Rfam assigns this 68-nucleotide RNA to the family "Cyano-1 RNA". The family has 265 seed sequences and 283 matches in Rfam 15.1.
RNA sequence: UUGUGUGUAGGAGGAAUUGAUUUAUUUUAGUGGAAACAAGGAAACACUAAAAUUAAAUCAGUUUUUAA
Numbered sequence: 001u002u003g004u005g006u007g008u009a010g011g012a013g014g015a016a017u018u019g020a021u022u023u024a025u026u027u028u029a030g031u032g033g034a035a036a037c038a039a040g041g042a043a044a045c046a047c048u049a050a051a052a053u054u055a056a057a058u059c060a061g062u063u064u065u066u067a068a
Stems, first nucleotide, its partner, number of pairs: 014064006022056002026051003030047003
Description:
Pairs were carried over by alignment from the consensus structure, which is taken from published work.